[Rfam]
RNA: malK-I RNA
RNA sequence: UCCUACCGCCACGGCGCACUCCACUUCUUGCGCCGCGGCGGCAAAAGAAAAGGAGAAUGAGCCGCUGUGGCUGGCGGUGCGGCAAUGUGGAGACUUGUCGUAAGGCGCAUGGGACAUUCCGCCCUGCGUGAGGCUGUCAUUGCGGAGGCAGGACAGUUACAGCCAGGAAUGUAUGGCA
Numbered sequence: 001u002c003c004u005a006c007c008g009c010c011a012c013g014g015c016g017c018a019c020u021c022c023a024c025u026u027c028u029u030g031c032g033c034c035g036c037g038g039c040g041g042c043a044a045a046a047g048a049a050a051a052g053g054a055g056a057a058u059g060a061g062c063c064g065c066u067g068u069g070g071c072u073g074g075c076g077g078u079g080c081g082g083c084a085a086u087g088u089g090g091a092g093a094c095u096u097g098u099c100g101u102a103a104g105g106c107g108c109a110u111g112g113g114a115c116a117u118u119c120c121g122c123c124c125u126g127c128g129u130g131a132g133g134c135u136g137u138c139a140u141u142g143c144g145g146a147g148g149c150a151g152g153a154c155a156g157u158u159a160c161a162g163c164c165a166g167g168a169a170u171g172u173a174u175g176g177c178a
Base pairs, nucleotide, nucleotide: 006041007040008039009038010037012035013034014033015032016031017030018029062077063076064075065074068165069164070163071162072161073160078102079101080100081099082098083097084096085095087094088093105129106128107127108126109125111124112123113122132158133157134156135155136154137153138152141150142149143148
Dot-bracket structure: .....(((((.(((((((..........))))))).)))))....................[[[[..((((((]]]]((((((((.((....))))))))))..(((((.(((........))))))))..(((((((..(((....))).))))))).)))))).............